[Rfam]
RNA sequence: CAAGCAGGGAUUGUGUGUAUCGGCGUUGUGCUAUGAUCAAUGCACUUUGUUUCUGAAAGAGUUCCUUGCAAAAUCAAUGCAGGGAAGAUGGGCAGUUGUGUUUCAAUUUCUACAAUUGAAAUUUUCAACAAUCAUCUUCUUCACACCU
Numbered sequence: 001c002a003a004g005c006a007g008g009g010a011u012u013g014u015g016u017g018u019a020u021c022g023g024c025g026u027u028g029u030g031c032u033a034u035g036a037u038c039a040a041u042g043c044a045c046u047u048u049g050u051u052u053c054u055g056a057a058a059g060a061g062u063u064c065c066u067u068g069c070a071a072a073a074u075c076a077a078u079g080c081a082g083g084g085a086a087g088a089u090g091g092g093c094a095g096u097u098g099u100g101u102u103u104c105a106a107u108u109u110c111u112a113c114a115a116u117u118g119a120a121a122u123u124u125u126c127a128a129c130a131a132u133c134a135u136c137u138u139c140u141u142c143a144c145a146c147c148u
Stems, first nucleotide, its partner, number of pairs: 004069007015045006082141010095129004